A member of the RNA family "mir-19 microRNA precursor family" from Cynoglossus semilaevis, 80 nucleotides long.
NCBI's taxonomy places the organism under Eukaryota, Bilateria, Euteleostomi, Pleuronectiformes, Cynoglossus.

RNA sequence: GUUUACAGGGAGUUUUGUUGGUUUGCUCUCAGCUCUGUUCCAAGUCUGCUGUGCAAAUCCAUGCAAAGCUCUUUGUUUUU
Numbered sequence: 001g002u003u004u005a006c007a008g009g010g011a012g013u014u015u016u017g018u019u020g021g022u023u024u025g026c027u028c029u030c031a032g033c034u035c036u037g038u039u040c041c042a043a044g045u046c047u048g049c050u051g052u053g054c055a056a057a058u059c060c061a062u063g064c065a066a067a068g069c070u071c072u073u074u075g076u077u078u079u080u
Stems, first nucleotide, its partner, number of pairs: 005076014020060002022057005028051001031050003
Clan: mir-19 clan. Rfam links the family to the GO terms miRNA-mediated post-transcriptional gene silencing and RISC complex. The match comes from Rfam's covariance-model search (59 bits). The family's consensus secondary structure was predicted with RNAalifold.